A member of the RNA family "Purine riboswitch aptamer" from Cytobacillus solani, 102 nucleotides long. The source organism's lineage runs through Bacteria, Bacilli, Caryophanales, Bacillaceae and Cytobacillus. Rfam links the family to the GO term purine nucleobase biosynthetic process. Rfam describes the family as follows. Riboswitches are metabolite binding domains within certain messenger RNAs that serve as precision sensors for their corresponding targets.
RNA sequence: UAUAUUAGACUCAUAUUUACCUGUAUAUGUUCAGUAAUAUGGACUGGACGUUUCUACCGAGCUGCCGUAAAUAGCUUGACUACAUGGGAAAAAGUGCGUUGC
Numbered sequence: 001u002a003u004a005u006u007a008g009a010c011u012c013a014u015a016u017u018u019a020c021c022u023g024u025a026u027a028u029g030u031u032c033a034g035u036a037a038u039a040u041g042g043a044c045u046g047g048a049c050g051u052u053u054c055u056a057c058c059g060a061g062c063u064g065c066c067g068u069a070a071a072u073a074g075c076u077u078g079a080c081u082a083c084a085u086g087g088g089a090a091a092a093a094g095u096g097c098g099u100u101g102c
Base pairs, nucleotide, nucleotide: 018088020086022084023083024082025081029049030048031047032046033045034044035043058078059077060076061075062074063073064072